[Rfam]
RNA sequence: CCCUAGCCCGGAUGGAAGCGGCAUCCUUUUAUGCUCUUGUUUUUUUUAAAACGAGAGCAUAAAAGAUAUAGCGUACAGCCGGAAACAGC
Number, nucleotide and partner (000 for none) at each position: 001c000002c000003c000004u000005a000006g000007c000008c000009c081010g080011g079012a000013u077014g076015g000016a000017a000018g072019c071020g000021g000022c000023a067024u066025c065026c000027u000028u000029u062030u061031a060032u059033g058034c057035u056036c055037u054038u053039g052040u051041u050042u049043u048044u000045u000046u000047u000048a043049a042050a041051a040052c039053g038054a037055g036056a035057g034058c033059a032060u031061a030062a029063a000064a000065g025066a024067u023068a000069u000070a000071g019072c018073g000074u000075a000076c014077a013078g000079c011080c010081g009082g000083a000084a000085a000086c000087a000088g000089c000
This 89-nucleotide RNA from Flavobacterium cheongpyeongense belongs to the Rfam family "Flavo-1 RNA". Rfam classes the family as a small RNA.